Rfam assigns this 105-nucleotide RNA from Tremellales sp. Tagirdzhanova-0007 to the family "Small nucleolar RNA Z13/snr52".
Lineage of the source: Eukaryota > Opisthokonta > Fungi > Dikarya > Tremellales.
Gene Ontology terms of the family: RNA processing and nucleolus.
Rfam classes the family as a C/D-box small nucleolar RNA.
A search with the family's covariance model found it, with a score of 76 bits.
RNA sequence: CCUCACCGAAUGAUGAAGUAUUACCGGAUGUAAAGCCCUACGGGGCGUUGUCCGAGAGCGCAAAACCAAGUGGACAUCUCCGUUGCCUUCCUUCUGACCUGUACC
Numbered sequence: 001c002c003u004c005a006c007c008g009a010a011u012g013a014u015g016a017a018g019u020a021u022u023a024c025c026g027g028a029u030g031u032a033a034a035g036c037c038c039u040a041c042g043g044g045g046c047g048u049u050g051u052c053c054g055a056g057a058g059c060g061c062a063a064a065a066c067c068a069a070g071u072g073g074a075c076a077u078c079u080c081c082g083u084u085g086c087c088u089u090c091c092u093u094c095u096g097a098c099c100u101g102u103a104c105c
Base pairs, nucleotide, nucleotide: 005102025082026081027080028079